[Rfam]
RNA: Small nucleolar RNA snoR31/Z110/Z27
RNA sequence: AGUAUCAGAGGACGAAAUCUCAUAUCAAUCUUAGGACACCUUCUGACACAGUGAUACCUGCACUGUGAAUGAGAAGGAAUAUCUUUCUGAUGAUACU
Numbered sequence: 001a002g003u004a005u006c007a008g009a010g011g012a013c014g015a016a017a018u019c020u021c022a023u024a025u026c027a028a029u030c031u032u033a034g035g036a037c038a039c040c041u042u043c044u045g046a047c048a049c050a051g052u053g054a055u056a057c058c059u060g061c062a063c064u065g066u067g068a069a070u071g072a073g074a075a076g077g078a079a080u081a082u083c084u085u086u087c088u089g090a091u092g093a094u095a096c097u
Stems, first nucleotide, its partner, number of pairs: 001097007044050002
Dot-bracket structure: (((((((....................................((...))........................................)))))))